[Rfam]
sok antitoxin (CssrC): a 153-nucleotide RNA from Serratia proteamaculans. On this family, see Kawano et al., Mol Microbiol 2007: "An antisense RNA controls synthesis of an SOS-induced toxin evolved from an antitoxin". About the family: Also identified in Shigella as CssrC. Rfam's curators put it in the seed alignment. Its family is annotated with mRNA binding in the Gene Ontology. Lineage of the source: Bacteria > Pseudomonadati > Pseudomonadota > Serratia > Serratia proteamaculans. The family has 91 seed sequences and 305 matches in Rfam 15.1.
RNA sequence: GGGCGCUUGAAGCUUUCUGCUUCAGGCCCUGGGUGGGAAGCAGAAAGAAGAAAGCCCCAAACUGACUCUUAAUCAGAAUGAGGCUUCACCAUACUGCAUCAACACCAGCAUGGUAGCCUCUUAACCGCAGAAAUGCAACGGAGGGCUGACAUG
Numbered sequence: 001g002g003g004c005g006c007u008u009g010a011a012g013c014u015u016u017c018u019g020c021u022u023c024a025g026g027c028c029c030u031g032g033g034u035g036g037g038a039a040g041c042a043g044a045a046a047g048a049a050g051a052a053a054g055c056c057c058c059a060a061a062c063u064g065a066c067u068c069u070u071a072a073u074c075a076g077a078a079u080g081a082g083g084c085u086u087c088a089c090c091a092u093a094c095u096g097c098a099u100c101a102a103c104a105c106c107a108g109c110a111u112g113g114u115a116g117c118c119u120c121u122u123a124a125c126c127g128c129a130g131a132a133a134u135g136c137a138a139c140g141g142a143g144g145g146c147u148g149a150c151a152u153g
Stems, first nucleotide, its partner, number of pairs: 001058003005055004013047011026034002059079001063076001064074002067071001080120005088114005094108003125144002